[Rfam]
RNA sequence: UCAUUUCAGAUGGCUGUUUGGGUAACUAAUAUUUAAGAUUUUGGUCAAUUUAAGUUACCAAUUUAUAUAUUGGUUACCCAUAUGGCCAUCUCAAAUUU
Numbered sequence: 001u002c003a004u005u006u007c008a009g010a011u012g013g014c015u016g017u018u019u020g021g022g023u024a025a026c027u028a029a030u031a032u033u034u035a036a037g038a039u040u041u042u043g044g045u046c047a048a049u050u051u052a053a054g055u056u057a058c059c060a061a062u063u064u065a066u067a068u069a070u071u072g073g074u075u076a077c078c079c080a081u082a083u084g085g086c087c088a089u090c091u092c093a094a095a096u097u098u
Base pairs, nucleotide, nucleotide: 003096004095005094006093008091009090010089011088012087013086014085015084016083017082019080020079021078022077023076024075025074026073027072028071029070030069031068034065035064036063037062041061042060043059044058045057047056048055049054
RNA: MIR774 microRNA precursor family
Organism: Arabidopsis thaliana